[Rfam]
RNA sequence: UGGCUUGAAAAAGCCUUCGUUUGCGCCCAUAUGGGUCGGGCCGGGUUCGCCCGGCUAUGGUGAUAAAGUGUGUCGUAUAAUAGACGCAGCGGACCCGGGGGCAGUACCCGGCGGUUCCACCACAUGUCCCGUGACGGCCCAGCCGGAACGGGGUGUCUGAUGGGGCCGAACUAGGAUCGACGUGUGUUCAAAGGCGAUAUUUUUACCCGGCCCGUGUAAGCCGUUAAACUGUGCAAAACUCACAAGUGCCAACGAUAACGAAGCACUCGCCAUUGCAGCGUAAUUGAGGGCCUCACGGCCUGACAUUACUCUAAAAUAGCGCGGUUGAACCCACCGGGCAACAGAAGGGAAUUCA
Numbered sequence: 001u002g003g004c005u006u007g008a009a010a011a012a013g014c015c016u017u018c019g020u021u022u023g024c025g026c027c028c029a030u031a032u033g034g035g036u037c038g039g040g041c042c043g044g045g046u047u048c049g050c051c052c053g054g055c056u057a058u059g060g061u062g063a064u065a066a067a068g069u070g071u072g073u074c075g076u077a078u079a080a081u082a083g084a085c086g087c088a089g090c091g092g093a094c095c096c097g098g099g100g101g102c103a104g105u106a107c108c109c110g111g112c113g114g115u116u117c118c119a120c121c122a123c124a125u126g127u128c129c130c131g132u133g134a135c136g137g138c139c140c141a142g143c144c145g146g147a148a149c150g151g152g153g154u155g156u157c158u159g160a161u162g163g164g165g166c167c168g169a170a171c172u173a174g175g176a177u178c179g180a181c182g183u184g185u186g187u188u189c190a191a192a193g194g195c196g197a198u199a200u201u202u203u204u205a206c207c208c209g210g211c212c213c214g215u216g217u218a219a220g221c222c223g224u225u226a227a228a229c230u231g232u233g234c235a236a237a238a239c240u241c242a243c244a245a246g247u248g249c250c251a252a253c254g255a256u257a258a259c260g261a262a263g264c265a266c267u268c269g270c271c272a273u274u275g276c277a278g279c280g281u282a283a284u285u286g287a288g289g290g291c292c293u294c295a296c297g298g299c300c301u302g303a304c305a306u307u308a309c310u311c312u313a314a315a316a317u318a319g320c321g322c323g324g325u326u327g328a329a330c331c332c333a334c335c336g337g338g339c340a341a342c343a344g345a346a347g348g349g350a351a352u353u354c355a
Base pairs, nucleotide, nucleotide: 040055041054042053043052044051059207060206061205062204063203070200071199072198073197074196075195076194085186086185087184089183090182091181095111096110097109098108099107112168113167114166115165116164117163118162208223209222210221211220214234215233219230322336323335324334325333327354328353329352332349
The family of this 355-nucleotide sequence from Sphingobium sp. YG1 is "Alphaproteobacteria transfer-messenger RNA". From the family's description: Bacterial tmRNA, also known as 10Sa RNA or SsrA, is named for its dual tRNA and mRNA-like properties. Its role is to liberate the mRNA from a stalled ribosome. To accomplish this part of the tmRNA is used as a reading frame that ends in a translation stop signal. The broken mRNA is replaced in the ribosome by the tmRNA and translation of the tmRNA leads to addition of a proteolysis tag to the incomplete protein enabling recognition by a protease. A search with the family's covariance model found it, with a score of 212 bits. On this family, see Williams and Bartel, RNA 1996: "Phylogenetic analysis of tmRNA secondary structure". Pairs were carried over by alignment from the consensus structure, which is taken from published work.